A member of the RNA family "c-di-AMP riboswitch aptamer (ydaO/yuaA leader)" from Streptomyces griseoviridis, 178 nucleotides long. Gene Ontology terms of the family: cyclic-di-AMP binding and regulation of gene expression. The pairing is the family consensus, mapped onto this sequence.
RNA sequence: UACACCCAUUCACCGAACGAACUCACGCACGGCAGGAGCGGGGGAACCAGGUAAGUCGCCGGACCGGGCCAGCGCCCGUGACGGCUAGGGGUGAAGUCGCACCGCCUGACAGCGGCGCGGCCGGGCAGCUCCCGCCCGAACCCGACAGCUCACCUCGCAGGCGACGGAGAGGAAACCG
Numbered sequence: 001u002a003c004a005c006c007c008a009u010u011c012a013c014c015g016a017a018c019g020a021a022c023u024c025a026c027g028c029a030c031g032g033c034a035g036g037a038g039c040g041g042g043g044g045a046a047c048c049a050g051g052u053a054a055g056u057c058g059c060c061g062g063a064c065c066g067g068g069c070c071a072g073c074g075c076c077c078g079u080g081a082c083g084g085c086u087a088g089g090g091g092u093g094a095a096g097u098c099g100c101a102c103c104g105c106c107u108g109a110c111a112g113c114g115g116c117g118c119g120g121c122c123g124g125g126c127a128g129c130u131c132c133c134g135c136c137c138g139a140a141c142c143c144g145a146c147a148g149c150u151c152a153c154c155u156c157g158c159a160g161g162c163g164a165c166g167g168a169g170a171g172g173a174a175a176c177c178g
Base pairs, nucleotide, nucleotide: 003163005161006160010037011036038158039157040156041155042154043153048088089143090142091141097120098119099118100117123137124136125135126134